[Rfam]
RNA: Eukaryotic large subunit ribosomal RNA, nucleotides 2209 to 2620
Organism: Perca fluviatilis
RNA sequence: AAGUUCGCAAAAUCAGAUCCGUAACCGGAAAAGGAUUGGCUCUAAGGGCUGGGUCGGUUCGGCUGGGUUGCGAGCGGGGCUGGGCUCGAGCAGCGGCUGGGGAGCAGUUGCCCGUUGCCCUCCUCUCUCCGCCGCUGGAAGCGCGGUGCAGUGGCCCGUCUGCGGGGCUCUCGUUGGCUGCAUUUCGUGUCGUCGUGCCGAGGAUUUUUGAGGGCGGUGUCCGACGCCGUGUGGAAGGCGGGUCGGUGGAGGGGAUCGGGUACGGCGGUGGUGGCGGCGACUCUGGACGCGCGCCGGGCCCUUCUCGCGGAUCUCCCCAGCUACGGCGCCCGCUGGGCCCCGUUCGCGUGUAGUCCUGGCGGGGUCGCCUCGGCUGGCGCCUAGCAGCUGACUUAGAAUUAGUGCGGACCAG
Numbered sequence: 001a002a003g004u005u006c007g008c009a010a011a012a013u014c015a016g017a018u019c020c021g022u023a024a025c026c027g028g029a030a031a032a033g034g035a036u037u038g039g040c041u042c043u044a045a046g047g048g049c050u051g052g053g054u055c056g057g058u059u060c061g062g063c064u065g066g067g068u069u070g071c072g073a074g075c076g077g078g079g080c081u082g083g084g085c086u087c088g089a090g091c092a093g094c095g096g097c098u099g100g101g102g103a104g105c106a107g108u109u110g111c112c113c114g115u116u117g118c119c120c121u122c123c124u125c126u127c128u129c130c131g132c133c134g135c136u137g138g139a140a141g142c143g144c145g146g147u148g149c150a151g152u153g154g155c156c157c158g159u160c161u162g163c164g165g166g167g168c169u170c171u172c173g174u175u176g177g178c179u180g181c182a183u184u185u186c187g188u189g190u191c192g193u194c195g196u197g198c199c200g201a202g203g204a205u206u207u208u209u210g211a212g213g214g215c216g217g218u219g220u221c222c223g224a225c226g227c228c229g230u231g232u233g234g235a236a237g238g239c240g241g242g243u244c245g246g247u248g249g250a251g252g253g254g255a256u257c258g259g260g261u262a263c264g265g266c267g268g269u270g271g272u273g274g275c276g277g278c279g280a281c282u283c284u285g286g287a288c289g290c291g292c293g294c295c296g297g298g299c300c301c302u303u304c305u306c307g308c309g310g311a312u313c314u315c316c317c318c319a320g321c322u323a324c325g326g327c328g329c330c331c332g333c334u335g336g337g338c339c340c341c342g343u344u345c346g347c348g349u350g351u352a353g354u355c356c357u358g359g360c361g362g363g364g365u366c367g368c369c370u371c372g373g374c375u376g377g378c379g380c381c382u383a384g385c386a387g388c389u390g391a392c393u394u395a396g397a398a399u400u401a402g403u404g405c406g407g408a409c410c411a412g
Base pairs, nucleotide, nucleotide: 016037017036018035019034020033038400039399041397042396043395044394045393046392047389048388049387050386051385053378054377055376056375057374058373059372061370062147063146064145067142068141069140070135071134072133074127076125077124078123079122082119083118087114088113090111091110092109093108094107096105097104098103